This 52-nucleotide RNA from Jannaschia donghaensis belongs to the Rfam family "serC leader". Taxonomically the source falls in Jannaschia (Bacteria, Pseudomonadati, Pseudomonadota, Alphaproteobacteria). Rfam classes the family as a cis-regulatory leader. From the family's description: This family is a putative regulatory RNA structure that is found upstream of the serC-serA operon in some alpha-proteobacteria. The final stem of the structure overlaps the ribosome binding site of the serC reading frame. For this family Rfam cites "Evidence for a second class of S-adenosylmethionine riboswitches and other regulatory RNA motifs in alpha-proteobacteria" (Corbino et al., Genome Biol, 2005).

[Rfam]
RNA sequence: CGUCGGGACACCCAUCCCCAACGAUGGGCAUUUAUCUGCAAGGAUAGUCAUG
Number, nucleotide and partner (000 for none) at each position: 001c000002g000003u000004c000005g000006g000007g000008a000009c000010a000011c028012c027013c026014a025015u024016c023017c000018c000019c000020a000021a000022c000023g016024a015025u014026g013027g012028g011029c000030a000031u000032u047033u046034a045035u044036c043037u042038g000039c000040a000041a000042g037043g036044a035045u034046a033047g032048u000049c000050a000051u000052g000